[Rfam]
Annotation
Rfam assigns this 76-nucleotide RNA from Heterocephalus glaber to the family "mir-147 microRNA precursor family". Lineage of the source: Eukaryota > Bilateria > Vertebrata > Teleostomi > Heterocephalus. The family has 26 seed sequences and 757 matches in Rfam 15.1. Gene Ontology terms of the family: RISC complex and miRNA-mediated post-transcriptional gene silencing. A reference for the family is Kawaji et al. (2008), "Hidden layers of human small RNAs", BMC Genomics.

RNA sequence: UGUGAACUUGAGGAAACAUUUCUGCACAAACUAGAAAAUGGAUAUCUGUGUGCAGAGUGCUUCUGCUAUAUUUGUA
Numbered sequence: 001u002g003u004g005a006a007c008u009u010g011a012g013g014a015a016a017c018a019u020u021u022c023u024g025c026a027c028a029a030a031c032u033a034g035a036a037a038a039u040g041g042a043u044a045u046c047u048g049u050g051u052g053c054a055g056a057g058u059g060c061u062u063c064u065g066c067u068a069u070a071u072u073u074g075u076a
Base pairs, nucleotide, nucleotide: 001076002075004073005072006071008068010066012064013063014062015061017059018058019057021056022055023054024053025052026051027050028049031048